[Rfam]
RNA sequence: CUUAGAUAACGGCACACCCGCGCGAAAGCCGGGGUCGCAAAGCCACCGGUCUACCGUCCUGCGCUGACGUAGGGCAAAGAUGGCGGGGUUGCCAUG
Numbered sequence: 001c002u003u004a005g006a007u008a009a010c011g012g013c014a015c016a017c018c019c020g021c022g023c024g025a026a027a028g029c030c031g032g033g034g035u036c037g038c039a040a041a042g043c044c045a046c047c048g049g050u051c052u053a054c055c056g057u058c059c060u061g062c063g064c065u066g067a068c069g070u071a072g073g074g075c076a077a078a079g080a081u082g083g084c085g086g087g088g089u090u091g092c093c094a095u096g
Base pairs, nucleotide, nucleotide: 012038013037017033018032019031020030022029023028041090042089043088044087046086047085048084049081050080051079056075057074058073059072060071061070062069063068

The record is a 96-nucleotide RNA sequence from Inhella crocodyli, which matches "c-di-GMP-I riboswitch aptamer" in Rfam. The match comes from Rfam's covariance-model search (63 bits). Gene Ontology term of the family: cyclic-di-GMP binding.